RNA sequence: GAAAAAGCAAGGGCCUGUUGCCUUCUUGUGAGAAAUCAUUUUUUUCAUUGUUAUUGGGUGAACCUCUUGAGUAGUUAAUGACUGAAGGUUCAUUAAAUGAUGGGACAUUA
Dot-bracket structure: ....(((...(....)........)))................(((((((((......(((((((....................)))))))...)))))))))......
RNA: Small nucleolar RNA snoR74
Organism: Camellia sinensis